Annotation
The record is a 108-nucleotide RNA sequence from Plutella xylostella, which matches "mir-8517 microRNA precursor family" in Rfam. A search with the family's covariance model found it, with a score of 96 bits. The base pairs follow the family's consensus structure, which was predicted with RNAalifold.
RNA sequence: UUAGUGGACGCUUUAGCUAUUGAACUGUUUAGUCACUCUCUGACAGAGAACAAUUUUUUUUUUGACAUAAAAGGAUAAAACUGUGCAAUAGCUAAAGCGUCCACUAAC
Numbered sequence: 001u002u003a004g005u006g007g008a009c010g011c012u013u014u015a016g017c018u019a020u021u022g023a024a025c026u027g028u029u030u031a032g033u034c035a036c037u038c039u040c041u042g043a044c045a046g047a048g049a050a051c052a053a054u055u056u057u058u059u060u061u062u063u064g065a066c067a068u069a070a071a072a073g074g075a076u077a078a079a080a081c082u083g084u085g086c087a088a089u090a091g092c093u094a095a096a097g098c099g100u101c102c103a104c105u106a107a108c
Stems, first nucleotide, its partner, number of pairs: 001107006011097012024084002027081002029069001032066004049059002052056001